Rfam assigns this 102-nucleotide RNA sequence from Oceanobacillus iheyensis to the family "Purine riboswitch aptamer".

RNA sequence: CAAUUUUUAUCCAAUGCCUUUCGUAUAUCCUCGAUAAUAUGGUUCGAAAGUAUCUACCGGGUCACCGUAAAUGAUCUGACUAUGAAGGCAGAAGCAGGUUCG
Number, nucleotide and partner (000 for none) at each position: 001c000002a000003a000004u000005u000006u000007u000008u000009a000010u000011c000012c000013a000014a000015u000016g000017c000018c088019u087020u086021u085022c084023g083024u082025a081026u000027a000028u000029c000030c000031u047032c046033g045034a044035u000036a000037a000038u000039a000040u000041g000042g000043u000044u034045c033046g032047a031048a000049a000050g000051u000052a000053u000054c000055u000056a000057c000058c078059g077060g076061g075062u074063c073064a072065c000066c000067g000068u000069a000070a000071a000072u064073g063074a062075u061076c060077u059078g058079a000080c000081u025082a024083u023084g022085a021086a020087g019088g018089c000090a000091g000092a000093a000094g000095c000096a000097g000098g000099u000100u000101c000102g000
The organism belongs to Oceanobacillus iheyensis, within Bacteria.